[Rfam]
Shown here is a 73-nucleotide RNA sequence from Chrysochloris asiatica, a member of the family "tRNA". Pairs were carried over by alignment from the consensus structure, which is taken from published work. The source organism's lineage runs through Eukaryota, Chordata, Craniata, Eutheria and Chrysochloris.
RNA sequence: AACCAUGUGGCCUAAUGGAUAAGGUGGCUGACUUUGGAUCAGAAGAUUGAGGGUUCAAAUCCCAUUAUAGUUG
Numbered sequence: 001a002a003c004c005a006u007g008u009g010g011c012c013u014a015a016u017g018g019a020u021a022a023g024g025u026g027g028c029u030g031a032c033u034u035u036g037g038a039u040c041a042g043a044a045g046a047u048u049g050a051g052g053g054u055u056c057a058a059a060u061c062c063c064a065u066u067a068u069a070g071u072u073g
Base pairs, nucleotide, nucleotide: 001072002071003070005068006067007066010025011024012023013022028042029041030040031039049065051063052062053061